[Rfam]
RNA sequence: GGUCAGUGAUGUGAUGUAAAAGGUCUGAUGUCCAGGUGUCGUUCCAGUCCCCUCGUCCCUCCCAGCCAACCCUGCUAAUUUUCCCAGCGUGCUCUAGUUGUGCAUCCCUGGUUUGAUGUGGUGGCUGUUAUAAUGGAUGUCUCUGCUAAUUAAGAGUCUUCUUUAGAGAACCAAAUGAGACUCUAACAGAAACAUCCCACAGAAACAUAACACACAGGAGGGCUGGACUGAAGGAGGCUGGUCAGCUGAUCUCACAAAUCAUACUGAGACC
Numbered sequence: 001g002g003u004c005a006g007u008g009a010u011g012u013g014a015u016g017u018a019a020a021a022g023g024u025c026u027g028a029u030g031u032c033c034a035g036g037u038g039u040c041g042u043u044c045c046a047g048u049c050c051c052c053u054c055g056u057c058c059c060u061c062c063c064a065g066c067c068a069a070c071c072c073u074g075c076u077a078a079u080u081u082u083c084c085c086a087g088c089g090u091g092c093u094c095u096a097g098u099u100g101u102g103c104a105u106c107c108c109u110g111g112u113u114u115g116a117u118g119u120g121g122u123g124g125c126u127g128u129u130a131u132a133a134u135g136g137a138u139g140u141c142u143c144u145g146c147u148a149a150u151u152a153a154g155a156g157u158c159u160u161c162u163u164u165a166g167a168g169a170a171c172c173a174a175a176u177g178a179g180a181c182u183c184u185a186a187c188a189g190a191a192a193c194a195u196c197c198c199a200c201a202g203a204a205a206c207a208u209a210a211c212a213c214a215c216a217g218g219a220g221g222g223c224u225g226g227a228c229u230g231a232a233g234g235a236g237g238c239u240g241g242u243c244a245g246c247u248g249a250u251c252u253c254a255c256a257a258a259u260c261a262u263a264c265u266g267a268g269a270c271c
Stems, first nucleotide, its partner, number of pairs: 001271004034252004041228002044226005059220004063127006084111004089106001092102001135197006153184006162177001163175002